[Rfam]
RNA sequence: GGUUCAGAGCACCAGUGCGCAACCGCGCGAAGCCCCGGCUUGCUGGUCGACAACCCCCCACGUGCGGGGGGUGCUCCGGGUGAUGACCUGGCCCCACGGUCUGCGUGGGGCAACGAUGGGCA
Numbered sequence: 001g002g003u004u005c006a007g008a009g010c011a012c013c014a015g016u017g018c019g020c021a022a023c024c025g026c027g028c029g030a031a032g033c034c035c036c037g038g039c040u041u042g043c044u045g046g047u048c049g050a051c052a053a054c055c056c057c058c059c060a061c062g063u064g065c066g067g068g069g070g071g072u073g074c075u076c077c078g079g080g081u082g083a084u085g086a087c088c089u090g091g092c093c094c095c096a097c098g099g100u101c102u103g104c105g106u107g108g109g110g111c112a113a114c115g116a117u118g119g120g121c122a
Base pairs, nucleotide, nucleotide: 001088002087003086004085009048011047012046013045014044015043016042031040032039049075051073054071055070056069058067059066091111092110093109094108095107096106097105098104

Record summary:
The family of this 122-nucleotide sequence from Georgenia yuyongxinii is "SAM (S-adenosyl methionine) riboswitch aptamer". Pairs were carried over by alignment from the consensus structure, which is taken from published work. A search with the family's covariance model found it, with a score of 58 bits.